[Rfam]
RNA: L19-Flavobacteria ribosomal protein leader
Organism: Saccharobesus litoralis
RNA sequence: UAACCUCUGGCCAACCUGUGGUGCAUGUUG
Numbered sequence: 001u002a003a004c005c006u007c008u009g010g011c012c013a014a015c016c017u018g019u020g021g022u023g024c025a026u027g028u029u030g
Stems, first nucleotide, its partner, number of pairs: 001030004008025001010022004